[Rfam]
RNA sequence: UAAUGAUAAUAGCAAAACUAGAGAAAUCUAGUGACGCAAAACUAUAGGGUCUUAACUAUUUAUAGAAAGACAGCCAGCUGCCAAA
Numbered sequence: 001u002a003a004u005g006a007u008a009a010u011a012g013c014a015a016a017a018c019u020a021g022a023g024a025a026a027u028c029u030a031g032u033g034a035c036g037c038a039a040a041a042c043u044a045u046a047g048g049g050u051c052u053u054a055a056c057u058a059u060u061u062a063u064a065g066a067a068a069g070a071c072a073g074c075c076a077g078c079u080g081c082c083a084a085a
Base pairs, nucleotide, nucleotide: 012037013036017032018031019030020029021028022027040079042077043076047075048074049071050070051069056065057064058063
Dot-bracket structure: ...........((...((((((....))))))...))..(.((...(((((....(((....)))...)))..)))).)......
Background
A member of the RNA family "c-di-GMP-I riboswitch aptamer" from Cetobacterium sp. 2A, 85 nucleotides long. A search with the family's covariance model found it, with a score of 74 bits. Taxonomically the source falls in Cetobacterium (Bacteria, Fusobacteriota, Fusobacteriia, Fusobacteriaceae).